[Rfam]
RNA: ZMP/ZTP riboswitch aptamer (pfl RNA motif)
Organism: Plantibacter sp. Leaf314
RNA sequence: UAGCAGUCGCAACUGGCGUAUAGACGGAGCCCGCUCCGCCUCAGAUGGUUCACCAUCGGGGAGCGACCCUGCACCUUGAAGACAAGGGCGGAUUCGGCCGCACGCCUGGGCCGAAACG
Numbered sequence: 001u002a003g004c005a006g007u008c009g010c011a012a013c014u015g016g017c018g019u020a021u022a023g024a025c026g027g028a029g030c031c032c033g034c035u036c037c038g039c040c041u042c043a044g045a046u047g048g049u050u051c052a053c054c055a056u057c058g059g060g061g062a063g064c065g066a067c068c069c070u071g072c073a074c075c076u077u078g079a080a081g082a083c084a085a086g087g088g089c090g091g092a093u094u095c096g097g098c099c100g101c102a103c104g105c106c107u108g109g110g111c112c113g114a115a116a117c118g
Base pairs, nucleotide, nucleotide: 001071002070003069006067007066008065009064010063013060014059015106016105017104018103019102045056046055047054048053095113096112097111098110099109
Dot-bracket structure: (((..(((((..(([[[[[.........................((((....))))..))..))))).))).......................(((((..]]]]]..))))).....